[Rfam]
RNA sequence: CAGCUGGCUUUAGUCCAGUGGUUCCUUCAAGUUUGGCUUCCCAAAUGCCCGGGCCAAUUGGUCCAGUGGUUCGAGAACCGCGGGCACUCUCCAGUCCUUUA
Numbered sequence: 001c002a003g004c005u006g007g008c009u010u011u012a013g014u015c016c017a018g019u020g021g022u023u024c025c026u027u028c029a030a031g032u033u034u035g036g037c038u039u040c041c042c043a044a045a046u047g048c049c050c051g052g053g054c055c056a057a058u059u060g061g062u063c064c065a066g067u068g069g070u071u072c073g074a075g076a077a078c079c080g081c082g083g084g085c086a087c088u089c090u091c092c093a094g095u096c097c098u099u100u101a
Base pairs, nucleotide, nucleotide: 003095004094005093006092007091013085014084015083016082018081019080020079021078026075027074028073030071
The family of this 101-nucleotide RNA sequence from Cavia porcellus is "Vault RNA". The source organism's lineage runs through Eukaryota, Craniata, Sarcopterygii, Glires and Cavia. The family has 73 seed sequences and 2,873 matches in Rfam 15.1. The match comes from Rfam's covariance-model search (52 bits).